[Rfam]
RNA sequence: GUGCAUGGAUGAAUACUUUCUAUGUGCUUGAGACAUUGUCUUUGAUAGUUGCACAAAUCCUCUAAGAAGUUCUGAGCAU
Numbered sequence: 001g002u003g004c005a006u007g008g009a010u011g012a013a014u015a016c017u018u019u020c021u022a023u024g025u026g027c028u029u030g031a032g033a034c035a036u037u038g039u040c041u042u043u044g045a046u047a048g049u050u051g052c053a054c055a056a057a058u059c060c061u062c063u064a065a066g067a068a069g070u071u072c073u074g075a076g077c078a079u
Stems, first nucleotide, its partner, number of pairs: 001079004

Annotation:
Shown here is a 79-nucleotide sequence from Ipomoea nil, a member of the family "Small nucleolar RNA U61". Rfam 15.1 lists 401 matches to the family in 204 species. On this family, see Brown et al., Nucleic Acids Res 2003: "Plant snoRNA database". The base pairs follow the family's consensus structure, which was predicted with WAR. By type it is a C/D-box small nucleolar RNA.